[Rfam]
RNA sequence: UUGUUGUAAGAUGAAGAAUUUAAGUGAUCCAUCAACAAUGUUUAUUAAAACUGUUGACAGUCAUUUCUCUGACAAUAGCAU
Number, nucleotide and partner (000 for none) at each position: 001u078002u077003g076004u075005u074006g070007u000008a000009a000010g029011a028012u027013g000014a025015a000016g000017a000018a000019u000020u000021u000022a000023a000024g000025u014026g000027a012028u011029c010030c000031a000032u057033c056034a055035a054036c053037a000038a000039u000040g051041u050042u049043u000044a000045u000046u000047a000048a000049a042050a041051c040052u000053g036054u035055u034056g033057a032058c000059a000060g000061u000062c000063a000064u000065u000066u000067c000068u000069c000070u006071g000072a000073c000074a005075a004076u003077a002078g001079c000080a000081u000
Rfam assigns this 81-nucleotide sequence from Acipenser ruthenus to the family "Small nucleolar RNA SNORD71". It scores 36 bits against the family's covariance model. The organism belongs to Acipenser, within Eukaryota. Gene Ontology terms of the family: RNA processing and nucleolus.